Source information
Rfam assigns this 110-nucleotide RNA from Brassica oleracea to the family "Small nucleolar RNA snoR97". It scores 49 bits against the family's covariance model. It is annotated as an H/ACA-box small nucleolar RNA. On this family, see Marker et al., Curr Biol 2002: "Experimental RNomics: identification of 140 candidates for small non-messenger RNAs in the plant Arabidopsis thaliana". Its family is annotated with nucleolus and RNA processing in the Gene Ontology. The family's consensus secondary structure was predicted with WAR.

[Rfam]
RNA sequence: AGUAGCCUAUGUGCUUGUAGUCUGAGUAACUCAGGAAUUAGAUUGUGUUUACAUCAGCUUUGUCUCUGGCUUAGGCCUUGAGAUUCUCGUUAAACUAGAACUCCUAAUUU
Numbered sequence: 001a002g003u004a005g006c007c008u009a010u011g012u013g014c015u016u017g018u019a020g021u022c023u024g025a026g027u028a029a030c031u032c033a034g035g036a037a038u039u040a041g042a043u044u045g046u047g048u049u050u051a052c053a054u055c056a057g058c059u060u061u062g063u064c065u066c067u068g069g070c071u072u073a074g075g076c077c078u079u080g081a082g083a084u085u086c087u088c089g090u091u092a093a094a095c096u097a098g099a100a101c102u103c104c105u106a107a108u109u110u
Stems, first nucleotide, its partner, number of pairs: 045103001047101004056091003063083004